RNA sequence: UGACCAGGGGGCCGGGAUGCUUUGAUUGUUACAGGAUCGGAGCGACCUACGGGUACAGGGAGUGCCUGCGCAAGGGCCGGGUCAGGUGAAGG
Number, nucleotide and partner (000 for none) at each position: 001u084002g083003a082004c081005c080006a000007g000008g000009g000010g078011g077012c076013c075014g048015g047016g046017a000018u044019g000020c042021u041022u040023u039024g038025a037026u036027u035028g000029u000030u000031a000032c000033a000034g000035g027036a026037u025038c024039g023040g022041a021042g020043c000044g018045a000046c016047c015048u014049a000050c068051g067052g066053g065054u064055a063056c062057a000058g000059g000060g000061a000062g056063u055064g054065c053066c052067u051068g050069c000070g000071c000072a000073a000074g000075g013076g012077c011078c010079g000080g005081g004082u003083c002084a001085g000086g000087u000088g000089a000090a000091g000092g000